[Rfam]
RNA: raiA RNA
Organism: Negativicoccus succinicivorans
RNA sequence: UGUUUACGGGUCUGUGGUUGCAAGUCGAGGCCAGUCGCAGGCAAAACGACCCACGUAAGAAAACAAAACGUUUUUGAGCAUGGUGCGGCUUAGAAGUAAGACCUGCCGGUAAAACCGAGAGGGCGAAUAGUGACGAGAGGAGCGAAAGUUCCAGCAGGCGAGUGUGGGGGCAAAGACCAGGUCAGCCGAUAAACA
Number, nucleotide and partner (000 for none) at each position: 001u195002g194003u193004u192005u191006a190007c188008g187009g186010g000011u000012c185013u184014g183015u179016g178017g177018u176019u175020g000021c000022a000023a000024g000025u000026c000027g000028a165029g000030g163031c041032c000033a090034g089035u088036c087037g086038c085039a084040g000041g031042c000043a000044a000045a000046a000047c000048g000049a000050c083051c082052c000053a000054c000055g000056u000057a000058a075059g074060a073061a072062a071063a000064c000065a000066a000067a000068a000069c000070g000071u062072u061073u060074u059075u058076g000077a000078g000079c000080a000081u172082g051083g050084u039085g038086c037087g036088g035089c034090u033091u000092a000093g000094a000095a000096g000097u000098a000099a000100g000101a000102c158103c157104u156105g155106c154107c117108g116109g115110u000111a000112a000113a000114a000115c109116c108117g107118a000119g000120a000121g151122g150123g149124c148125g000126a000127a000128u000129a000130g143131u142132g000133a000134c000135g000136a000137g000138a000139g000140g000141a000142g131143c130144g000145a000146a000147a000148g124149u123150u122151c121152c000153a000154g106155c105156a104157g103158g102159c000160g000161a000162g000163u030164g000165u028166g000167g000168g000169g000170g000171c000172a081173a000174a000175g019176a018177c017178c016179a015180g000181g000182u000183c014184a013185g012186c009187c008188g007189a000190u006191a005192a004193a003194c002195a001